[Rfam]
RNA sequence: GUUGAUGGGAAUGUUGUUUGGCUCGAGGUCAUUUAGGGUUCGUCUAAUAUCUACAUAUGCAUACAUACAAAGCCCUAUAUGAUGUCGGACCAGGCUUCAUUCCCAUCAAC
Number, nucleotide and partner (000 for none) at each position: 001g110002u109003u108004g107005a106006u105007g104008g103009g102010a101011a100012u099013g098014u000015u000016g095017u094018u093019u092020g091021g090022c000023u000024c087025g086026a085027g000028g000029u000030c000031a000032u000033u000034u000035a000036g000037g000038g000039u000040u000041c000042g000043u000044c000045u000046a000047a000048u000049a000050u000051c000052u000053a000054c000055a000056u000057a000058u000059g000060c000061a000062u000063a000064c000065a000066u000067a000068c000069a000070a000071a000072g000073c000074c000075c000076u000077a000078u000079a000080u000081g000082a000083u000084g000085u026086c025087g024088g000089a000090c021091c020092a019093g018094g017095c016096u000097u000098c013099a012100u011101u010102c009103c008104c007105a006106u005107c004108a003109a002110c001
This 110-nucleotide RNA from Gossypium harknessii belongs to the Rfam family "mir-166 microRNA precursor family". It scores 88 bits against the family's covariance model. The source organism's lineage runs through Eukaryota, Streptophytina, Magnoliopsida, Malvales and Gossypium. This family represents the plant microRNA (miRNA) precursor mir-166.